MIR2275 microRNA precursor family: an 89-nucleotide RNA sequence from Rhynchospora breviuscula.
The source organism's lineage runs through Eukaryota, Viridiplantae, Liliopsida, Poales and Rhynchospora.

RNA sequence: GCCUGGAAAGUGAGAAUUGGAGGACAUCAAAUAUAUGCAUCUUUUUUGUUGUUUUAAUUUGAUUUCCUCCAAUAUCUUACCUUCCAAUG
Numbered sequence: 001g002c003c004u005g006g007a008a009a010g011u012g013a014g015a016a017u018u019g020g021a022g023g024a025c026a027u028c029a030a031a032u033a034u035a036u037g038c039a040u041c042u043u044u045u046u047u048g049u050u051g052u053u054u055u056a057a058u059u060u061g062a063u064u065u066c067c068u069c070c071a072a073u074a075u076c077u078u079a080c081c082u083u084c085c086a087a088u089g
Stems, first nucleotide, its partner, number of pairs: 004086005011079004016073006023066002026063005032057001